[Rfam]
The record is a 126-nucleotide RNA sequence from Salmo trutta, which matches "Small nucleolar RNA SNORA17" in Rfam.
By type it is an H/ACA-box small nucleolar RNA.
The family is grouped with related families in Rfam's "SNORA17 clan".
snoRNA ACA 17 belongs to the H/ACA family of snoRNAs and is predicted to guide pseudouridylation of the 28S rRNA at positions U4659 and U4598. It shares the same host gene together with ACA43. NB This family has a high threshold value to exclude a large number of closely related sequences that do not appear to have conserved H and ACA boxes, and may be pseudogenes.
Its family is annotated with RNA processing and nucleolus in the Gene Ontology.
Nucleotides: 126
Base pairs, nucleotide, nucleotide: 002081003080004079005078006077007075008074009073010072011071013069014068015067016066017065018064019063021061022060023059024058025057026056027055028054029053030052087123090120091119092118093117094116095115096114
Number, partner (000 for none) and nucleotide at each position: 001000u002081c003080u004079g005078u006077c007075c008074c009073c010072c011071c012000u013069g014068g015067c016066c017065c018064a019063g020000g021061g022060c023059c024058c025057a026056c027055a028054u029053a030052g031000a032000c033000a034000g035000a036000c037000a038000g039000c040000g041000u042000g043000a044000g045000a046000c047000a048000a049000c050000a051000g052030c053029u054028a055027u056026g057025u058024g059023g060022g061021c062000c063019c064018u065017g066016g067015g068014c069013c070000a071011g072010g073009g074008g075007g076000g077006g078005a079004c080003a081002g082000a083000g084000a085000g086000a087123g088000a089000g090120a091119g092118a093117g094116a095115g096114a097000g098000u099000g100000u101000g102000a103000g104000a105000c106000a107000a108000c109000a110000g111000c112000u113000g114096u115095c116094u117093c118092u119091c120090u121000g122000a123087c124000c125000c126000a